[Rfam]
Rfam assigns this 87-nucleotide RNA from Triticum aestivum to the family "MIR1120/MIR1122 microRNA precursor family".
RNA sequence: GUACUACCUCUGUCCCAUAAUAUAACAACAUUUUUGACAAUAAUAUAGUGUCAAAAACGUUCUUAUAUUAUGGGACGGAGGGAGUAU
Numbered sequence: 001g002u003a004c005u006a007c008c009u010c011u012g013u014c015c016c017a018u019a020a021u022a023u024a025a026c027a028a029c030a031u032u033u034u035u036g037a038c039a040a041u042a043a044u045a046u047a048g049u050g051u052c053a054a055a056a057a058c059g060u061u062c063u064u065a066u067a068u069u070a071u072g073g074g075a076c077g078g079a080g081g082g083a084g085u086a087u
Base pairs, nucleotide, nucleotide: 003085004084005083007081008080009079010078011077013075014074015073016072017071019069020068021067022066023065024064025063027061028060029059031057032056033055034054035053036052037051038050039049041047
The source organism's lineage runs through Eukaryota, Tracheophyta, Liliopsida, Triticeae and Triticum.